[Rfam]
RNA sequence: UUUGGUAUGAGUGACUGGCGAAAACGUAGAUCACUACGGGGGAGCGCAUAUUUCAUAAAAGCCGUUCGCCUGGGCAAAGUAU
Numbered sequence: 001u002u003u004g005g006u007a008u009g010a011g012u013g014a015c016u017g018g019c020g021a022a023a024a025c026g027u028a029g030a031u032c033a034c035u036a037c038g039g040g041g042g043a044g045c046g047c048a049u050a051u052u053u054c055a056u057a058a059a060a061g062c063c064g065u066u067c068g069c070c071u072g073g074g075c076a077a078a079g080u081a082u
Base pairs, nucleotide, nucleotide: 004052005051006050007049008048009047011045012044015041016040017070018069019068020067021066026037027036028035029034061075062074063073